Notes:
TPP riboswitch aptamer (THI element): a 102-nucleotide sequence from Pusillibacter faecalis.
[Rfam]
RNA sequence: GUGCCAAGACAGGGGAGUCCAUUUGGGCUGAGAGGAAGCAAAUGCUUCGACCCUUCACCUGAUGUGGGUCAUGCCACCGUAGGAAGUCGUUCAGGCAGCUUG
Numbered sequence: 001g002u003g004c005c006a007a008g009a010c011a012g013g014g015g016a017g018u019c020c021a022u023u024u025g026g027g028c029u030g031a032g033a034g035g036a037a038g039c040a041a042a043u044g045c046u047u048c049g050a051c052c053c054u055u056c057a058c059c060u061g062a063u064g065u066g067g068g069u070c071a072u073g074c075c076a077c078c079g080u081a082g083g084a085a086g087u088c089g090u091u092c093a094g095g096c097a098g099c100u101u102g
Stems, first nucleotide, its partner, number of pairs: 006090001008088003011054004017028004035048005058083004064077004
Taxonomically the source falls in Pusillibacter (Bacteria, Bacillati, Bacillota, Eubacteriales).